[Rfam]
RNA sequence: CUCCCGUCGGGGAGAGAAGUCCCUGUGGAGCUUUACUGCAGCUUGUCGCUGUGCUGCGGUCUUGGGUGCAGAGAGUAGCUGGGAGCGAUGAAGGCAUCCCUCCGGGGGUGCCGGAUGCGAAAGUGUAACACCAGCCACUCGCGGCCGCGGCACUAACCGGGGAGGGAUCCUCGGGACAACGGCAGGUGGGCAGUUCGGCUGGGGCGGUCCCCCCUCGAAAAGAUAUCGAGGGGGCCCAAAGGUCGGCUCAGGCGGGUCAGAACCCCGCCGCAGAGGGCAAGGCCAUAAGCCGGCCUGACUGGAUCCCCAAUUGCACCGGAUCCAGAGGGGAAACCCGGGCCUAGCGAACCACCGUGUCCCCACCGUUGGGGGCCGGUGACGACGGAAAAGUUACCCCAGGGGUAACAGGCUCGUCGCGGGCGAGAGCUCCCAUCGACCCCGCGGUUUGGUACAUCGAUGUCGGCUCUUCCUAUCCUGGCCCUGCAGCAGGGGCCAAGGGUGGGGCUGUUCGCCCAUUAAAAGGGAUCGUGAGCUGGGUUUAGACCGUCGCGAGACAGGUCGGACUCUACCUGACGGGAGCGGU
Numbered sequence: 001c002u003c004c005c006g007u008c009g010g011g012g013a014g015a016g017a018a019g020u021c022c023c024u025g026u027g028g029a030g031c032u033u034u035a036c037u038g039c040a041g042c043u044u045g046u047c048g049c050u051g052u053g054c055u056g057c058g059g060u061c062u063u064g065g066g067u068g069c070a071g072a073g074a075g076u077a078g079c080u081g082g083g084a085g086c087g088a089u090g091a092a093g094g095c096a097u098c099c100c101u102c103c104g105g106g107g108g109u110g111c112c113g114g115a116u117g118c119g120a121a122a123g124u125g126u127a128a129c130a131c132c133a134g135c136c137a138c139u140c141g142c143g144g145c146c147g148c149g150g151c152a153c154u155a156a157c158c159g160g161g162g163a164g165g166g167a168u169c170c171u172c173g174g175g176a177c178a179a180c181g182g183c184a185g186g187u188g189g190g191c192a193g194u195u196c197g198g199c200u201g202g203g204g205c206g207g208u209c210c211c212c213c214c215u216c217g218a219a220a221a222g223a224u225a226u227c228g229a230g231g232g233g234g235c236c237c238a239a240a241g242g243u244c245g246g247c248u249c250a251g252g253c254g255g256g257u258c259a260g261a262a263c264c265c266c267g268c269c270g271c272a273g274a275g276g277g278c279a280a281g282g283c284c285a286u287a288a289g290c291c292g293g294c295c296u297g298a299c300u301g302g303a304u305c306c307c308c309a310a311u312u313g314c315a316c317c318g319g320a321u322c323c324a325g326a327g328g329g330g331a332a333a334c335c336c337g338g339g340c341c342u343a344g345c346g347a348a349c350c351a352c353c354g355u356g357u358c359c360c361c362a363c364c365g366u367u368g369g370g371g372g373c374c375g376g377u378g379a380c381g382a383c384g385g386a387a388a389a390g391u392u393a394c395c396c397c398a399g400g401g402g403u404a405a406c407a408g409g410c411u412c413g414u415c416g417c418g419g420g421c422g423a424g425a426g427c428u429c430c431c432a433u434c435g436a437c438c439c440c441g442c443g444g445u446u447u448g449g450u451a452c453a454u455c456g457a458u459g460u461c462g463g464c465u466c467u468u469c470c471u472a473u474c475c476u477g478g479c480c481c482u483g484c485a486g487c488a489g490g491g492g493c494c495a496a497g498g499g500u501g502g503g504g505c506u507g508u509u510c511g512c513c514c515a516u517u518a519a520a521a522g523g524g525a526u527c528g529u530g531a532g533c534u535g536g537g538u539u540u541a542g543a544c545c546g547u548c549g550c551g552a553g554a555c556a557g558g559u560c561g562g563a564c565u566c567u568a569c570c571u572g573a574c575g576g577g578a579g580c581g582g583u
Stems, first nucleotide, its partner, number of pairs: 001579008010571003014566002022400004027396002029392005035194004042186007051153011063141006078135005085118003096109005157174006197210001198208003211233006236339002242294006248274002251269006275284002299325008327336001329334001350378005356373001358372004409450003413447001414444007424434002461536001462534004466528001467525005474499002478493005502514004542560004546555003